[Rfam]
RNA sequence: CAUUCCGAGGAGCGUUGCAACGACCGGCCCAAGUUCAGACGGGGCGGCCGCCAGGCUCGGAAGUUCAAACGGCGCUCGCAGUAU
Numbered sequence: 001c002a003u004u005c006c007g008a009g010g011a012g013c014g015u016u017g018c019a020a021c022g023a024c025c026g027g028c029c030c031a032a033g034u035u036c037a038g039a040c041g042g043g044g045c046g047g048c049c050g051c052c053a054g055g056c057u058c059g060g061a062a063g064u065u066c067a068a069a070c071g072g073c074g075c076u077c078g079c080a081g082u083a084u
Stems, first nucleotide, its partner, number of pairs: 003062006021050002024047003
RNA: SAH (S-adenosyl-L-homocysteine) riboswitch aptamer
Organism: Ralstonia pickettii